[Rfam]
RNA sequence: UCUGCCGGCCGGGCGGCCGCGCGCGGAAACGCUCGAGGAACGUCCGGGCUCCACAGGGCAGGGUGGUGGCUAACAGCCACCCGGGGUAACCCGCGGGACAGUGCCACAGAAAACAAACCACCGACGCGUAUGCGGCGGUAAGGGUGAAAAGGUGAGGUAAGAGCUCACCAGCGGCGCAGGUGACUGCGUCGGCUAGGUAAACCCCACCCGGAGCAAGACCGAGCAGCAGGCAGGGCGGCCCGUCCAAUGCCUGCGGGUAGGUCGCUGGAGGCCGUCGGUAACGACGGUCCUAGAUAGAUGGUCGCCACCGCACGACCGGUAACGGCGUGCGCGACAGAACCCGGCGUACAGGCCGACAGAUGCC
Number, nucleotide and partner (000 for none) at each position: 001u360002c359003u358004g357005c000006c355007g354008g353009c352010c351011g349012g306013g305014c304015g303016g302017c301018c300019g000020c035021g034022c000023g032024c031025g030026g000027a000028a000029a000030c025031g024032c023033u000034c021035g020036a000037g000038g000039a000040a347041c346042g345043u000044c344045c343046g342047g341048g340049c213050u212051c211052c210053a000054c000055a000056g241057g240058g239059c238060a000061g209062g208063g207064u206065g205066g080067u079068g078069g077070c076071u000072a000073a000074c000075a000076g070077c069078c068079a067080c066081c095082c093083g092084g091085g090086g000087u000088a000089a000090c085091c084092c083093g082094c000095g081096g204097g203098a000099c000100a000101g202102u201103g198104c197105c196106a000107c000108a000109g000110a000111a000112a000113a000114c000115a000116a000117a000118c143119c142120a139121c138122c137123g136124a000125c134126g133127c132128g000129u000130a000131u000132g127133c126134g125135g000136c123137g122138g121139u120140a000141a000142g119143g118144g000145u000146g000147a000148a000149a000150a000151g169152g168153u167154g166155a165156g164157g000158u000159a000160a000161g000162a000163g000164c156165u155166c154167a153168c152169c151170a000171g193172c191173g190174g189175c188176g187177c186178a185179g184180g000181u000182g000183a000184c179185u178186g177187c176188g175189u174190c173191g172192g000193c171194u000195a000196g105197g104198u103199a000200a000201a102202c101203c097204c096205c065206a064207c063208c062209c061210g052211g051212a050213g049214c000215a000216a000217g263218a262219c261220c260221g000222a000223g000224c000225a000226g254227c253228a252229g251230g250231c249232a000233g245234g244235g243236c242237g000238g059239c058240c057241c056242g236243u235244c234245c233246a000247a000248u000249g231250c230251c229252u228253g227254c226255g000256g000257g000258u000259a000260g220261g219262u218263c217264g000265c000266u000267g000268g000269a000270g289271g288272c287273c286274g285275u284276c283277g282278g000279u000280a000281a000282c277283g276284a275285c274286g273287g272288u271289c270290c000291u000292a000293g000294a000295u000296a000297g000298a000299u000300g018301g017302u016303c015304g014305c013306c012307a000308c000309c000310g000311c000312a000313c000314g000315a000316c000317c000318g000319g000320u000321a000322a000323c000324g000325g000326c000327g000328u000329g000330c000331g000332c000333g000334a000335c000336a000337g000338a000339a000340c048341c047342c046343g045344g044345c042346g041347u040348a000349c011350a000351g010352g009353c008354c007355g006356a000357c004358a003359g002360a001361u000362g000363c000364c000